[Rfam]
This 72-nucleotide sequence from Asanoa hainanensis belongs to the Rfam family "tRNA". The base pairs follow the family's consensus structure, which is taken from published work. For this family Rfam cites "tRNAscan-SE: a program for improved detection of transfer RNA genes in genomic sequence" (Lowe and Eddy, Nucleic Acids Res, 1997). The match comes from Rfam's covariance-model search (67 bits). Rfam links the family to the GO term triplet codon-amino acid adaptor activity. The family's RNA type in Rfam is transfer RNA.
RNA sequence: UGGGACGUGGGGUAACGGCAGCCCGCCGGACUUUGAAUCCGGAAGGUCCUGGUUCGAAUCCAGGCGUCCCAG
Numbered sequence: 001u002g003g004g005a006c007g008u009g010g011g012g013u014a015a016c017g018g019c020a021g022c023c024c025g026c027c028g029g030a031c032u033u034u035g036a037a038u039c040c041g042g043a044a045g046g047u048c049c050u051g052g053u054u055c056g057a058a059u060c061c062a063g064g065c066g067u068c069c070c071a072g
Base pairs, nucleotide, nucleotide: 001071002070003069004068005067006066007065010024011023012022013021026042027041028040029039030038048064049063050062051061052060